[Rfam]
RNA sequence: GGGCCUAAGUGGAGUAGUGGUCUCCUCACUUCGUAUUUUGUAUUAGUGAGAUUCAACUCCUCCAACUUAGCUCC
Dot-bracket structure: ......((((((((..((....((.(((((..............)))))))....).).))))).)))......
mir-1175 microRNA precursor family: a 74-nucleotide RNA sequence from Chionoecetes opilio. The base pairs follow the family's consensus structure, which was predicted with RNAalifold. It scores 70 bits against the family's covariance model. Its family is annotated with miRNA-mediated post-transcriptional gene silencing and RISC complex in the Gene Ontology.